Rfam assigns this 118-nucleotide RNA sequence from Azospirillum sp. RU38E to the family "Glycine riboswitch aptamer". This family represents the bacterial glycine riboswitch.
[Rfam]
RNA sequence: GCGCAUCUGGAAAGCAGGCGGGCCGGGAUUCCAUCCCAGCCGACAGCCCACCGACGGAGUAAGCUGACAGCCACAAGGUUGCGGCGAAUCUCUCAGGGGCCAGGACAGAGGGGGGCAA
Number, nucleotide and partner (000 for none) at each position: 001g000002c113003g000004c111005a000006u109007c108008u107009g106010g000011a000012a000013a000014g000015c000016a000017g048018g047019c046020g000021g000022g000023c000024c000025g000026g000027g000028a000029u000030u000031c000032c000033a000034u000035c000036c000037c000038a000039g000040c000041c000042g000043a000044c000045a000046g019047c018048c017049c000050a000051c097052c096053g094054a093055c000056g000057g092058a091059g090060u000061a000062a000063g085064c084065u083066g082067a000068c000069a000070g000071c000072c000073a000074c000075a000076a000077g000078g000079u000080u000081g000082c066083g065084g064085c063086g000087a000088a000089u000090c059091u058092c057093u054094c053095a000096g052097g051098g000099g000100c000101c000102a000103g000104g000105a000106c009107a008108g007109a006110g000111g004112g000113g002114g000115g000116c000117a000118a000